[Rfam]
RNA: SAM riboswitch aptamer (S box leader)
RNA sequence: GUCUUAUCAAGAGCAGGUGGAGGGAUGAGCCCUACGAAGCCCGGCAACCGACCCAUUUAUGGGCACGGUGCUAAUUCUUACAACACAUUGUGUUGAAAGAUAAGAG
Numbered sequence: 001g002u003c004u005u006a007u008c009a010a011g012a013g014c015a016g017g018u019g020g021a022g023g024g025a026u027g028a029g030c031c032c033u034a035c036g037a038a039g040c041c042c043g044g045c046a047a048c049c050g051a052c053c054c055a056u057u058u059a060u061g062g063g064c065a066c067g068g069u070g071c072u073a074a075u076u077c078u079u080a081c082a083a084c085a086c087a088u089u090g091u092g093u094u095g096a097a098a099g100a101u102a103a104g105a106g
Stems, first nucleotide, its partner, number of pairs: 002105007013042001016041003022032003026080004043072004048068002050064001052062002076098001081095005